[Rfam]
RNA sequence: UAAGAAAAGAAGAAGCACCCGCUUCUCACCUGGCCCGACGCAUUAUGUGCAGUUAGCAGGUUCAUGAUUUGAUUAUCUGAAUUUAUUCUGAUUAUUCUAUCUGUGUGGGUGUUUAGACGACAUCCACACUUUUUUAUUGUG
Numbered sequence: 001u002a003a004g005a006a007a008a009g010a011a012g013a014a015g016c017a018c019c020c021g022c023u024u025c026u027c028a029c030c031u032g033g034c035c036c037g038a039c040g041c042a043u044u045a046u047g048u049g050c051a052g053u054u055a056g057c058a059g060g061u062u063c064a065u066g067a068u069u070u071g072a073u074u075a076u077c078u079g080a081a082u083u084u085a086u087u088c089u090g091a092u093u094a095u096u097c098u099a100u101c102u103g104u105g106u107g108g109g110u111g112u113u114u115a116g117a118c119g120a121c122a123u124c125c126a127c128a129c130u131u132u133u134u135u136a137u138u139g140u141g
Stems, first nucleotide, its partner, number of pairs: 011026006028061003037054003040050002104128010
Dot-bracket structure: ..........((((((....)))))).(((......(((((.......)).)))....)))..........................................((((((((((.....)))))))))).............
RNA: Ribosomal protein L20 leader
Organism: Bacillus sp. V59.32b